Description:
This 87-nucleotide RNA sequence belongs to the Rfam family "RT-18 RNA". The family's RNA type in Rfam is small RNA.

[Rfam]
RNA sequence: CACCGCUUGGUGGAAAUAUUGCCGCUACAGGACGGGCUUUAGUACGGCCGAAAGGUAUCUGGAAAGACCCCGAUGGCAAACAAGGAG
Numbered sequence: 001c002a003c004c005g006c007u008u009g010g011u012g013g014a015a016a017u018a019u020u021g022c023c024g025c026u027a028c029a030g031g032a033c034g035g036g037c038u039u040u041a042g043u044a045c046g047g048c049c050g051a052a053a054g055g056u057a058u059c060u061g062g063a064a065a066g067a068c069c070c071c072g073a074u075g076g077c078a079a080a081c082a083a084g085g086a087g
Stems, first nucleotide, its partner, number of pairs: 001012004020078004033072004038067002045061002047056003